[Rfam]
RNA sequence: CCAGAUAAAAGACUUAUCGCUUUAAUUUAUUAAAGAGGAAAGUCCGGGCUCUACAAAGACACAGUGCCAGUUAAUAACUGGCGGGGGCGACCCUAGGGAUAGUGCCACAGAAAAUAAACCGCCUUAUCAAGGCAAGGGUGAAAAGGUGUGGUAAGAGCACACCGGCUAUGUUGGUAACAACUAGCGCAUGGAAAACCCCACUGGGAGCAAGACUGAGUAGAGAUGACACUGUUAGAAAUAACGAAAAGCAGUCUUUGGCUAGUCAUCUGGGUUAGUUGCUUGAGCCUUAAAGCGAUUUAAGGCCUAGAGAAAUGAUAAGUUUAAACGACAGAACCCGGCUUAUAUUUUAUCUGGCAAA
Numbered sequence: 001c002c003a004g005a006u007a008a009a010a011g012a013c014u015u016a017u018c019g020c021u022u023u024a025a026u027u028u029a030u031u032a033a034a035g036a037g038g039a040a041a042g043u044c045c046g047g048g049c050u051c052u053a054c055a056a057a058g059a060c061a062c063a064g065u066g067c068c069a070g071u072u073a074a075u076a077a078c079u080g081g082c083g084g085g086g087g088c089g090a091c092c093c094u095a096g097g098g099a100u101a102g103u104g105c106c107a108c109a110g111a112a113a114a115u116a117a118a119c120c121g122c123c124u125u126a127u128c129a130a131g132g133c134a135a136g137g138g139u140g141a142a143a144a145g146g147u148g149u150g151g152u153a154a155g156a157g158c159a160c161a162c163c164g165g166c167u168a169u170g171u172u173g174g175u176a177a178c179a180a181c182u183a184g185c186g187c188a189u190g191g192a193a194a195a196c197c198c199c200a201c202u203g204g205g206a207g208c209a210a211g212a213c214u215g216a217g218u219a220g221a222g223a224u225g226a227c228a229c230u231g232u233u234a235g236a237a238a239u240a241a242c243g244a245a246a247a248g249c250a251g252u253c254u255u256u257g258g259c260u261a262g263u264c265a266u267c268u269g270g271g272u273u274a275g276u277u278g279c280u281u282g283a284g285c286c287u288u289a290a291a292g293c294g295a296u297u298u299a300a301g302g303c304c305u306a307g308a309g310a311a312a313u314g315a316u317a318a319g320u321u322u323a324a325a326c327g328a329c330a331g332a333a334c335c336c337g338g339c340u341u342a343u344a345u346u347u348u349a350u351c352u353g354g355c356a357a358a
Base pairs, nucleotide, nucleotide: 001354002353003352004351005350006349007348008347009346010345011343012320013319014318015317016316017315018314020035021034022033023032024031025030040341041340042339044338045337046336047335048334049207050206051205052204057255058254062203063202064201065200066199067081068080069079070078071077082096083094084093085092086091097198098197102196103195105191106190119137120136121133122132123131124130125129145163146162147161148160149159150158164187165185166184167183168182170181171180172179173178211277212276213275214274221268222267223266224265225264226263247260248259249258284303285302286301287300288299289298290297291296
Source information
The family of this 358-nucleotide RNA sequence from Pelagibacterales bacterium SAG-MED16 is "Bacterial RNase P class A". Its family is annotated with ribonuclease P activity, tRNA processing and dimeric ribonuclease P complex in the Gene Ontology. It scores 295 bits against the family's covariance model. The family's consensus secondary structure is taken from published work. Rfam classes the family as a ribozyme. Lineage of the source: Bacteria > Pseudomonadati > Pseudomonadota > Alphaproteobacteria > Candidatus Pelagibacterales.